pemK RNA: a 63-nucleotide RNA from Gemella sp. zg-570. Lineage of the source: Bacteria > Bacillota > Bacilli > Caryophanales > Gemella. It scores 40 bits against the family's covariance model.

RNA sequence: AUAAUGAUACUUCAAUACGUUGAGCUUCCUGUCGAGAAAAAGGGAGUGGUGAGAUGCCAAUGU
Numbered sequence: 001a002u003a004a005u006g007a008u009a010c011u012u013c014a015a016u017a018c019g020u021u022g023a024g025c026u027u028c029c030u031g032u033c034g035a036g037a038a039a040a041a042g043g044g045a046g047u048g049g050u051g052a053g054a055u056g057c058c059a060a061u062g063u
Stems, first nucleotide, its partner, number of pairs: 012060001013024001025046003029042002047059003